[Rfam]
RNA sequence: GCACUGGUGUAGCUCAGUGGUUACUUCUCUCCUGCAGAGAUCGCCAACCUCUAUCCCUUUGUGGGACUGAACCCCGGGCACUGUCCACUGCUUUU
Numbered sequence: 001g002c003a004c005u006g007g008u009g010u011a012g013c014u015c016a017g018u019g020g021u022u023a024c025u026u027c028u029c030u031c032c033u034g035c036a037g038a039g040a041u042c043g044c045c046a047a048c049c050u051c052u053a054u055c056c057c058u059u060u061g062u063g064g065g066a067c068u069g070a071a072c073c074c075c076g077g078g079c080a081c082u083g084u085c086c087a088c089u090g091c092u093u094u095u
Stems, first nucleotide, its partner, number of pairs: 002090002005087003012079004017075001019073002025071003
Dot-bracket structure: .((.(((....((((.(.((....(((.........................................))))).))))).....))).)).....
Background:
Shown here is a 95-nucleotide sequence from Neogobius melanostomus, a member of the family "Vault RNA". Rfam classes the family as a non-coding RNA gene. This family of RNAs are found as part of the enigmatic vault ribonucleoprotein complex. The complex consists of a major vault protein (MVP), two minor vault proteins (VPARP and TEP1), and several small untranslated RNA molecules. It has been suggested that the vault complex is involved in drug resistance.